[Rfam]
RNA: SAM riboswitch aptamer (S box leader)
Organism: Turicibacter sp. HGF1
RNA sequence: CUCUUAUUAAGAGCGAUGGAGGCAUAGGGGCCUAUGAAGUCGCGGCAACCUCUGAAAUUGAAAGGUGCCGACCCAAGCGAGUUUAACUCGAGCAAUAAGAG
Numbered sequence: 001c002u003c004u005u006a007u008u009a010a011g012a013g014c015g016a017u018g019g020a021g022g023c024a025u026a027g028g029g030g031c032c033u034a035u036g037a038a039g040u041c042g043c044g045g046c047a048a049c050c051u052c053u054g055a056a057a058u059u060g061a062a063a064g065g066u067g068c069c070g071a072c073c074c075a076a077g078c079g080a081g082u083u084u085a086a087c088u089c090g091a092g093c094a095a096u097a098a099g100a101g
Base pairs, nucleotide, nucleotide: 001101002100003099004098005097006096007095008094013043014042015041016040017039021032022031023030029074044069045068046067047066049065050064051061052060054058078090079089080088081087082086